[Rfam]
RNA: 6C RNA
RNA sequence: AGCGGAACUGGCCUACCCCCCCAGGGCCAGACCGCGUGAUCCCCCUCGCUCUCCCCCCCGGCGAGGGGGAUCACUAUU
Numbered sequence: 001a002g003c004g005g006a007a008c009u010g011g012c013c014u015a016c017c018c019c020c021c022c023a024g025g026g027c028c029a030g031a032c033c034g035c036g037u038g039a040u041c042c043c044c045c046u047c048g049c050u051c052u053c054c055c056c057c058c059c060g061g062c063g064a065g066g067g068g069g070a071u072c073a074c075u076a077u078u
Stems, first nucleotide, its partner, number of pairs: 002035004008030007036074013